[Rfam]
RNA: TPP riboswitch aptamer (THI element)
Organism: Xylanimonas oleitrophica
RNA sequence: CGCCAACCUCACGGGCGCUCUGAGCACAGAGCUGAGAUCGGACUGCCGCUGUCCGAGCACCGUUCGAACCUGUCCGGGUCAUGCCGGCGAAGGAAGAAGGAGCUCAUGACGC
Numbered sequence: 001c002g003c004c005a006a007c008c009u010c011a012c013g014g015g016c017g018c019u020c021u022g023a024g025c026a027c028a029g030a031g032c033u034g035a036g037a038u039c040g041g042a043c044u045g046c047c048g049c050u051g052u053c054c055g056a057g058c059a060c061c062g063u064u065c066g067a068a069c070c071u072g073u074c075c076g077g078g079u080c081a082u083g084c085c086g087g088c089g090a091a092g093g094a095a096g097a098a099g100g101a102g103c104u105c106a107u108g109a110c111g112c
Stems, first nucleotide, its partner, number of pairs: 007099001009097002011063004017032005039055005069093003074087004